Shown here is a 107-nucleotide sequence from Rodentibacter trehalosifermentans, a member of the family "Aggregatibacter sRNA 22".
Pairs were carried over by alignment from the consensus structure, which was predicted with RNAfold.
A reference for the family is Oogai et al. (2017), "Small RNA repertoires and their intraspecies variation in Aggregatibacter actinomycetemcomitans", DNA Res.
Rfam classes the family as a small RNA.
[Rfam]
RNA sequence: GUGCGGUCAUAAAAACAACCUUUUUGAACGUUGGUUUGCCUACGGCACCAAAGGCGUGGAUAAAUCGCUUUAGUAAUUGGUGAAUAAUUUUUGGAGAAAUUUAUGAA
Numbered sequence: 001g002u003g004c005g006g007u008c009a010u011a012a013a014a015a016c017a018a019c020c021u022u023u024u025u026g027a028a029c030g031u032u033g034g035u036u037u038g039c040c041u042a043c044g045g046c047a048c049c050a051a052a053g054g055c056g057u058g059g060a061u062a063a064a065u066c067g068c069u070u071u072a073g074u075a076a077u078u079g080g081u082g083a084a085u086a087a088u089u090u091u092u093g094g095a096g097a098a099a100u101u102u103a104u105g106a107a
Base pairs, nucleotide, nucleotide: 010026011025012024013023014022015021029044030043031042033040034039045057046056048054049053060081061080063078064077065076067074068073084104085103086102087101
Dot-bracket structure: .........((((((.....))))))..(((.((....)).)))((.((...)).))..((.(((.((....)).))).))..((((.............))))...